[Rfam]
Rfam assigns this 86-nucleotide RNA from Paenibacillus cremeus to the family "c-di-GMP-I riboswitch aptamer". The organism belongs to Paenibacillus, within Bacteria. GEMM was predicted in a large-scale screen for bacterial structured RNA regulatory elements. The family's consensus secondary structure is taken from published work. A search with the family's covariance model found it, with a score of 76 bits.
RNA sequence: AUAUGACAAAGGCAAAUCCUACGAAAGUCGGAGACGCAAAACCGCGGGUCUAAGGCAGAAACUGCUAUGACGGCUAGGUUACCAAA
Numbered sequence: 001a002u003a004u005g006a007c008a009a010a011g012g013c014a015a016a017u018c019c020u021a022c023g024a025a026a027g028u029c030g031g032a033g034a035c036g037c038a039a040a041a042c043c044g045c046g047g048g049u050c051u052a053a054g055g056c057a058g059a060a061a062c063u064g065c066u067a068u069g070a071c072g073g074c075u076a077g078g079u080u081a082c083c084a085a086a
Stems, first nucleotide, its partner, number of pairs: 012037002017032003021028002040080004046075002048071003055065004